[Rfam]
Shown here is a 110-nucleotide RNA sequence from Rhizobium sp. Leaf306, a member of the family "EcpR1".
RNA sequence: AUACCCCAUGAUGCUCAGGUCCGCCGCAUCUCCUGGGUCGUGGGGUCGGUCGACUGGCAAGCAAUUUCAACGGCUCCUCGUGCCGCGAUUGCAAGCCGGUCGACCCCCAA
Number, nucleotide and partner (000 for none) at each position: 001a000002u000003a046004c045005c044006c043007c042008a041009u040010g039011a000012u000013g000014c037015u036016c035017a034018g033019g032020u000021c000022c000023g000024c000025c000026g000027c000028a000029u000030c000031u000032c019033c018034u017035g016036g015037g014038u000039c010040g009041u008042g007043g006044g005045g004046u003047c000048g105049g104050u103051c102052g101053a100054c099055u098056g097057g096058c095059a000060a000061g000062c000063a000064a000065u000066u000067u000068c000069a000070a000071c000072g000073g000074c000075u000076c000077c000078u000079c000080g000081u000082g000083c000084c000085g000086c000087g000088a000089u000090u000091g000092c000093a000094a000095g058096c057097c056098g055099g054100u053101c052102g051103a050104c049105c048106c000107c000108c000109a000110a000
For this family Rfam cites "Conservation and Occurrence of Trans-Encoded sRNAs in the Rhizobiales" (Reinkensmeier et al., Genes (Basel), 2011). About the family: Perviously named SmelC291, SmrC10, or Sra33. According to its overproduction phenotype it was renamed Elongated Cell Phenotype RNA1. Induced by stress,EcpR1 negatively regulates cell cycle master regulatory genes dnaA and gcrA at post-transcriptional level by base pairing between its strongly conserved GC-rich loop and the target mRNAs. Pairs were carried over by alignment from the consensus structure, which was predicted with WAR.